[Rfam]
RNA sequence: UCGAUUAGAGUUUGAUCCUGGCUCAGAAUGAACGUUGGCGGCAUGGCUAAAGCAUGCAAGUCGCACGUGCCCCGCAAGGGGAAAGUGGCGGACGGGUCAGUAACAGGAUCGAACGUACCCCGAGGUGGGGGAUAGCGGUGGGAAACUGCCGGUAAUACCUCAUGAUCUCUCCGGAGCAAAGCCUCGGCGCCUCGGGAUCGGCGAUCUUCCUAUCAGGUCGUUGGCGGGGUAAUGGCCCACCAAGCCGAAGACGGGUAGCGGGUGUGAGAGCACGACCCGCGACAUCGGGACUGAGACACUGCCCGGACUCCUACGGGAGGCUGCAGCAACGAAUCUUCCGCAAUGGGCGCAAGCCUGACGGAGCAAUGCCGCGUGCGGGAUGAAGCGUCUUGACGUGUAAACCGCUGUCAGGGGGUCGAACCAAUGAUUGCCCCCAGAGGAAGUGGCGACUAACUCUGUGCCAGCAGUCGCGGUAAUACAGAGGCCACGAACAUUAUUCGGAAUCACUG
Numbered sequence: 001u002c003g004a005u006u007a008g009a010g011u012u013u014g015a016u017c018c019u020g021g022c023u024c025a026g027a028a029u030g031a032a033c034g035u036u037g038g039c040g041g042c043a044u045g046g047c048u049a050a051a052g053c054a055u056g057c058a059a060g061u062c063g064c065a066c067g068u069g070c071c072c073c074g075c076a077a078g079g080g081g082a083a084a085g086u087g088g089c090g091g092a093c094g095g096g097u098c099a100g101u102a103a104c105a106g107g108a109u110c111g112a113a114c115g116u117a118c119c120c121c122g123a124g125g126u127g128g129g130g131g132a133u134a135g136c137g138g139u140g141g142g143a144a145a146c147u148g149c150c151g152g153u154a155a156u157a158c159c160u161c162a163u164g165a166u167c168u169c170u171c172c173g174g175a176g177c178a179a180a181g182c183c184u185c186g187g188c189g190c191c192u193c194g195g196g197a198u199c200g201g202c203g204a205u206c207u208u209c210c211u212a213u214c215a216g217g218u219c220g221u222u223g224g225c226g227g228g229g230u231a232a233u234g235g236c237c238c239a240c241c242a243a244g245c246c247g248a249a250g251a252c253g254g255g256u257a258g259c260g261g262g263u264g265u266g267a268g269a270g271c272a273c274g275a276c277c278c279g280c281g282a283c284a285u286c287g288g289g290a291c292u293g294a295g296a297c298a299c300u301g302c303c304c305g306g307a308c309u310c311c312u313a314c315g316g317g318a319g320g321c322u323g324c325a326g327c328a329a330c331g332a333a334u335c336u337u338c339c340g341c342a343a344u345g346g347g348c349g350c351a352a353g354c355c356u357g358a359c360g361g362a363g364c365a366a367u368g369c370c371g372c373g374u375g376c377g378g379g380a381u382g383a384a385g386c387g388u389c390u391u392g393a394c395g396u397g398u399a400a401a402c403c404g405c406u407g408u409c410a411g412g413g414g415g416u417c418g419a420a421c422c423a424a425u426g427a428u429u430g431c432c433c434c435c436a437g438a439g440g441a442a443g444u445g446g447c448g449a450c451u452a453a454c455u456c457u458g459u460g461c462c463a464g465c466a467g468u469c470g471c472g473g474u475a476a477u478a479c480a481g482a483g484g485c486c487a488c489g490a491a492c493a494u495u496a497u498u499c500g501g502a503a504u505c506a507c508u509g
Stems, first nucleotide, its partner, number of pairs: 008024005026499004031495002034492003038372006044365002046330001052327002055325003060089003065086002068083001070081004096283003105208007114200002119196007127161004136151006167176003181188002209255003216246003221243004226238003258280004262273004285306005308319004336362001338361003344357005375405004385396004409440001411435005419428001443488005454483005464471002
RNA: Bacterial small subunit ribosomal RNA, nucleotides 1 to 509
Organism: uncultured bacterium